[Rfam]
RNA sequence: UUUUCUAAUAGGACAAAUCAGAUUUUUCCUCUUGAUUUCAGCAUUUUCCUCCUGGCAAAAUUUAAAUCCAACUGAAAAUGCUAAAAUUCAGGAGGAAUAAGUCUGAUUUGUCAUUCUCUUAUU
Number, nucleotide and partner (000 for none) at each position: 001u000002u000003u121004u000005c000006u000007a117008a000009u000010a114011g000012g112013a111014c110015a109016a108017a107018u106019c105020a104021g103022a102023u100024u099025u000026u097027u096028c000029c094030u093031c092032u091033u090034g089035a088036u086037u085038u084039c000040a082041g081042c000043a000044u078045u077046u076047u075048c000049c000050u000051c000052c000053u000054g000055g000056c000057a000058a000059a000060a000061u000062u000063u000064a000065a000066a000067u000068c000069c000070a000071a000072c000073u000074g000075a047076a046077a045078a044079u000080g000081c041082u040083a000084a038085a037086a036087u000088u035089c034090a033091g032092g031093a030094g029095g000096a027097a026098u000099a024100a023101g000102u022103c021104u020105g019106a018107u017108u016109u015110g014111u013112c012113a000114u010115u000116c000117u007118c000119u000120u000121a003122u000123u000